[Rfam]
Annotation:
Rfam assigns this 85-nucleotide RNA from Citrus unshiu to the family "Small nucleolar RNA SNORD25". The family's RNA type in Rfam is C/D-box small nucleolar RNA. The family is grouped with related families in Rfam's "SNORD25 clan".
RNA sequence: CGAAACAUUGAUGAUCCUACAGACCUGUAAUGAUUUGUGAAAAUGAUCACAAAUGUUAAGUGAACAUCUAAGGGACUGAGUUUCU
Numbered sequence: 001c002g003a004a005a006c007a008u009u010g011a012u013g014a015u016c017c018u019a020c021a022g023a024c025c026u027g028u029a030a031u032g033a034u035u036u037g038u039g040a041a042a043a044u045g046a047u048c049a050c051a052a053a054u055g056u057u058a059a060g061u062g063a064a065c066a067u068c069u070a071a072g073g074g075a076c077u078g079a080g081u082u083u084c085u
Base pairs, nucleotide, nucleotide: 002084003083004082005081006080
Pairs were carried over by alignment from the consensus structure, which was predicted with PFOLD.